[Rfam]
Shown here is a 156-nucleotide sequence from Alicyclobacillaceae bacterium I2511, a member of the family "c-di-AMP riboswitch aptamer (ydaO/yuaA leader)". A search with the family's covariance model found it, with a score of 100 bits. The organism belongs to Alicyclobacillaceae, within Bacteria. Rfam links the family to the GO terms regulation of gene expression and cyclic-di-AMP binding.
RNA sequence: GGACAGUCUACGCUGAAUUCUUGGAGAAAGAAGCGGGGGAACCAAGUUUCUGGGGUGAAUCCUGAGAAGUCGAAGCUAAUUCGUCGAUUUUCCAGGUAGGGUUAACUUUCAAUCCGAACCCGUCAGCUAACUUCGCAAGCGUAGAAAGGGAAAGUU
Numbered sequence: 001g002g003a004c005a006g007u008c009u010a011c012g013c014u015g016a017a018u019u020c021u022u023g024g025a026g027a028a029a030g031a032a033g034c035g036g037g038g039g040a041a042c043c044a045a046g047u048u049u050c051u052g053g054g055g056u057g058a059a060u061c062c063u064g065a066g067a068a069g070u071c072g073a074a075g076c077u078a079a080u081u082c083g084u085c086g087a088u089u090u091u092c093c094a095g096g097u098a099g100g101g102u103u104a105a106c107u108u109u110c111a112a113u114c115c116g117a118a119c120c121c122g123u124c125a126g127c128u129a130a131c132u133u134c135g136c137a138a139g140c141g142u143a144g145a146a147a148g149g150g151a152a153a154g155u156u
Base pairs, nucleotide, nucleotide: 011141012140013139014138018032019031020030033136034135035134036133037132038131043052044051053121054120055119061096062095063094064093099115100114101113102112